[Rfam]
The family of this 161-nucleotide sequence from Nitrobacter hamburgensis is "6S / SsrS RNA". Rfam describes the family as follows. E. coli 6S RNA was the first non coding RNA to be sequenced, but its function was unknown until recently. It consists of 184 nucleotides that fold into an extended hairpin structure with a large single-stranded internal bulge. The 6S RNA specifically associates with RNA polymerase holoenzyme containing the sigma70 specificity factor. The source organism's lineage runs through Bacteria, Pseudomonadati, Alphaproteobacteria, Nitrobacter and Nitrobacter hamburgensis.

RNA sequence: GCGAGGCUGCGACGCGCGUCAGGAGCCACACAUCCCCGGGGCCUUAUCGAUCCUUCAGGGAACUGUCCCUGGCCGGGUCCGUGGAUCCGGUCAUAUGGUGCCCACCUACUUUCGUAGGGAACUCCGGGAUCGAGCGCUCCAACGGCGAUUGCGGCUUCGCA
Numbered sequence: 001g002c003g004a005g006g007c008u009g010c011g012a013c014g015c016g017c018g019u020c021a022g023g024a025g026c027c028a029c030a031c032a033u034c035c036c037c038g039g040g041g042c043c044u045u046a047u048c049g050a051u052c053c054u055u056c057a058g059g060g061a062a063c064u065g066u067c068c069c070u071g072g073c074c075g076g077g078u079c080c081g082u083g084g085a086u087c088c089g090g091u092c093a094u095a096u097g098g099u100g101c102c103c104a105c106c107u108a109c110u111u112u113c114g115u116a117g118g119g120a121a122c123u124c125c126g127g128g129a130u131c132g133a134g135c136g137c138u139c140c141a142a143c144g145g146c147g148a149u150u151g152c153g154g155c156u157u158c159g160c161a
Stems, first nucleotide, its partner, number of pairs: 002159010013147003017144003033129004038124003042119002058103003062099005072091006